[Rfam]
RNA sequence: GCUGCCCCAUGAUGGCUGGAUCUGAAAUCCUAGAUGGAUCCAGCUUGAUGUCUUUGCAGU
Numbered sequence: 001g002c003u004g005c006c007c008c009a010u011g012a013u014g015g016c017u018g019g020a021u022c023u024g025a026a027a028u029c030c031u032a033g034a035u036g037g038a039u040c041c042a043g044c045u046u047g048a049u050g051u052c053u054u055u056g057c058a059g060u
Stems, first nucleotide, its partner, number of pairs: 001060005014045010028034002

A member of the RNA family "Selenocysteine insertion sequence 1" from Rousettus aegyptiacus, 60 nucleotides long. The incorporation of selenocysteine into a protein sequence is directed by an in-frame UGA codon (usually a stop codon) within the coding region of the mRNA. Selenoprotein mRNAs contain a conserved secondary structure in the 3' UTR that is required for the distinction of UGA stop from UGA selenocysteine. The selenocysteine insertion sequence (SECIS) is around 60 nt in length and adopts a hairpin structure which is sufficiently well-defined and conserved to act as a computational screen for selenoprotein genes. A reference for the family is Walczak et al. (1996), "A novel RNA structural motif in the selenocysteine insertion element of eukaryotic selenoprotein mRNAs", RNA. The base pairs follow the family's consensus structure, which is taken from published work. Lineage of the source: Eukaryota > Vertebrata > Mammalia > Theria > Rousettus. It is annotated as a cis-regulatory element. It scores 40 bits against the family's covariance model.